[Rfam]
A member of the RNA family "Bacterial small subunit ribosomal RNA" from Victivallis vadensis, 587 nucleotides of a longer RNA.
Clan: SSU clan.
For this family Rfam cites "The comparative RNA web (CRW) site: an online database of comparative sequence and structure information for ribosomal, intron, and other RNAs" (Cannone et al., BMC Bioinformatics, 2002).
The base pairs follow the family's consensus structure, which is taken from published work.
RNA sequence: UGACGGGGGCCCGCACAAGCGGUGGAGCAUGUGGCUUAAUUCGAGGCAACGCGAAGAACCUUACCUGGGCUUGAAAUAUACCGGACCGGCUGUGAAAGCAGUCUUCUCUUCGGAGCUGGUAUACAGGUGCUGCAUGGCUGUCGUCAGCUCGUGCCGUGAGGUGUUCGGUUAAGUCCGGCAACGAGCGCAACCCGUGUCAUUAGUUGCCAACAGGUAAUGCUGGGGACUCUAAUGAGACUGCCUGUGUUAAGCAGGAGGAAGGCGCGGAUGACGUCAAGUCAGUAUGGCCCUUACGCCCAGGGCUGCACACGUGCUACAAUGGGGGGUACAAUGAGAAGCGAAGUCGCGAGGCGGAGCAAAUCUACAAAACCUCUCUUAGUUCAGAUUGCAGUCUGCAACUCGACUGCAUGAAGUUGGAAUCGCUAGUAAAUGCGUAUCAGCUACGACGCAUUGAAUACGUUCCCGGGCCUUGUACACACCGCCCGUCACAUCAUGGGAGUUGAUUGCACCCGAAAUCGGUGAUCUAACCUGCAAAGGAAGAAGCCGCCUAAGGUGUGGUCGAUGACUGGGAUGAAGUCGUAACAAGG
Numbered sequence: 001u002g003a004c005g006g007g008g009g010c011c012c013g014c015a016c017a018a019g020c021g022g023u024g025g026a027g028c029a030u031g032u033g034g035c036u037u038a039a040u041u042c043g044a045g046g047c048a049a050c051g052c053g054a055a056g057a058a059c060c061u062u063a064c065c066u067g068g069g070c071u072u073g074a075a076a077u078a079u080a081c082c083g084g085a086c087c088g089g090c091u092g093u094g095a096a097a098g099c100a101g102u103c104u105u106c107u108c109u110u111c112g113g114a115g116c117u118g119g120u121a122u123a124c125a126g127g128u129g130c131u132g133c134a135u136g137g138c139u140g141u142c143g144u145c146a147g148c149u150c151g152u153g154c155c156g157u158g159a160g161g162u163g164u165u166c167g168g169u170u171a172a173g174u175c176c177g178g179c180a181a182c183g184a185g186c187g188c189a190a191c192c193c194g195u196g197u198c199a200u201u202a203g204u205u206g207c208c209a210a211c212a213g214g215u216a217a218u219g220c221u222g223g224g225g226a227c228u229c230u231a232a233u234g235a236g237a238c239u240g241c242c243u244g245u246g247u248u249a250a251g252c253a254g255g256a257g258g259a260a261g262g263c264g265c266g267g268a269u270g271a272c273g274u275c276a277a278g279u280c281a282g283u284a285u286g287g288c289c290c291u292u293a294c295g296c297c298c299a300g301g302g303c304u305g306c307a308c309a310c311g312u313g314c315u316a317c318a319a320u321g322g323g324g325g326g327u328a329c330a331a332u333g334a335g336a337a338g339c340g341a342a343g344u345c346g347c348g349a350g351g352c353g354g355a356g357c358a359a360a361u362c363u364a365c366a367a368a369a370c371c372u373c374u375c376u377u378a379g380u381u382c383a384g385a386u387u388g389c390a391g392u393c394u395g396c397a398a399c400u401c402g403a404c405u406g407c408a409u410g411a412a413g414u415u416g417g418a419a420u421c422g423c424u425a426g427u428a429a430a431u432g433c434g435u436a437u438c439a440g441c442u443a444c445g446a447c448g449c450a451u452u453g454a455a456u457a458c459g460u461u462c463c464c465g466g467g468c469c470u471u472g473u474a475c476a477c478a479c480c481g482c483c484c485g486u487c488a489c490a491u492c493a494u495g496g497g498a499g500u501u502g503a504u505u506g507c508a509c510c511c512g513a514a515a516u517c518g519g520u521g522a523u524c525u526a527a528c529c530u531g532c533a534a535a536g537g538a539a540g541a542a543g544c545c546g547c548c549u550a551a552g553g554u555g556u557g558g559u560c561g562a563u564g565a566c567u568g569g570g571a572u573g574a575a576g577u578c579g580u581a582a583c584a585a586g587g
Stems, first nucleotide, its partner, number of pairs: 001476002003473003007470007015460002019423005024317001026315008034306002040055004064301007077123002080120005088103006106115003126290002129288004135284002137279003140275001142273002147186006153162003165178004192267004197235007207224002211222003238258002241255005321375007334363002338357002343352003382413001387408007429452007479586001481583001484579002489573004494568003499563012517546004523541003528537002